[Rfam]
RNA sequence: GGGCGGCCUCCGCCGAGCCCGGCCGUGCGGCCGGGGCCGGGGACCCACUCCCCACGGGGUGAAUCGGGCCCGCGGGCCCGUAGGGCGGACUUCCGACGCCCGAACCCGUCAGCUAACCCGGUAGGCGGUGUUCCACGGAAGG
Numbered sequence: 001g002g003g004c005g006g007c008c009u010c011c012g013c014c015g016a017g018c019c020c021g022g023c024c025g026u027g028c029g030g031c032c033g034g035g036g037c038c039g040g041g042g043a044c045c046c047a048c049u050c051c052c053c054a055c056g057g058g059g060u061g062a063a064u065c066g067g068g069c070c071c072g073c074g075g076g077c078c079c080g081u082a083g084g085g086c087g088g089a090c091u092u093c094c095g096a097c098g099c100c101c102g103a104a105c106c107c108g109u110c111a112g113c114u115a116a117c118c119c120g121g122u123a124g125g126c127g128g129u130g131u132u133c134c135a136c137g138g139a140a141g142g
Base pairs, nucleotide, nucleotide: 011127012126013125014124018035019034020033021032022031023030036122037121038120039119040118041117046056057107058106059105065080066079067078068077083101084100085099086098
Source information: The record is a 142-nucleotide RNA sequence from Streptomyces radiopugnans, which matches "c-di-AMP riboswitch aptamer (ydaO/yuaA leader)" in Rfam. This family represents a conserved RNA structure found upstream of the ydaO and yuaA genes in Bacillus subtilis and related genes in other bacteria. The ydaO/yuaA element is thought to act as a genetic 'off' switch for the ydaO and yuaA genes in its native state. Taxonomically the source falls in Streptomyces (Bacteria, Actinomycetota, Actinomycetes, Streptomycetaceae).